[Rfam]
RNA sequence: CCCAGCCCUAAAGGGCUGGGCUAUUUUAUGCCGUCCCUAGCGGGACU
Numbered sequence: 001c002c003c004a005g006c007c008c009u010a011a012a013g014g015g016c017u018g019g020g021c022u023a024u025u026u027u028a029u030g031c032c033g034u035c036c037c038u039a040g041c042g043g044g045a046c047u
Stems, first nucleotide, its partner, number of pairs: 001020008033046005
Annotation:
The family of this 47-nucleotide sequence from Pirellula sp. SH-Sr6A is "Acido-Lenti-1 RNA". By type it is a small RNA. It scores 50 bits against the family's covariance model.